[Rfam]
RNA sequence: GCGGGCAGAAGAGGUGCGUUAUUCAGGUAACCGAGACGAGGAGCUACCACUCCUAAGACACUCGGCGAGGGGAGAUAACGCCGAGAGGAGUUUACGGGUAGCGUAAAUGCCUCGGCUUUGAAGGCUGAAUCCUUCAGGCUGUCGCCUACAUAGGGCUGGCGUGCUUCUAAGUGA
Numbered sequence: 001g002c003g004g005g006c007a008g009a010a011g012a013g014g015u016g017c018g019u020u021a022u023u024c025a026g027g028u029a030a031c032c033g034a035g036a037c038g039a040g041g042a043g044c045u046a047c048c049a050c051u052c053c054u055a056a057g058a059c060a061c062u063c064g065g066c067g068a069g070g071g072g073a074g075a076u077a078a079c080g081c082c083g084a085g086a087g088g089a090g091u092u093u094a095c096g097g098g099u100a101g102c103g104u105a106a107a108u109g110c111c112u113c114g115g116c117u118u119u120g121a122a123g124g125c126u127g128a129a130u131c132c133u134u135c136a137g138g139c140u141g142u143c144g145c146c147u148a149c150a151u152a153g154g155g156c157u158g159g160c161g162u163g164c165u166u167c168u169a170a171g172u173g174a
Stems, first nucleotide, its partner, number of pairs: 007168005016081008031065005085113004090108007114140004119136006142159003146155002

The family of this 174-nucleotide sequence from Oceanisphaera avium is "Lysine riboswitch aptamer". The base pairs follow the family's consensus structure, which is taken from published work. NCBI's taxonomy places the organism under Bacteria, Pseudomonadati, Pseudomonadota, Aeromonadales, Oceanisphaera.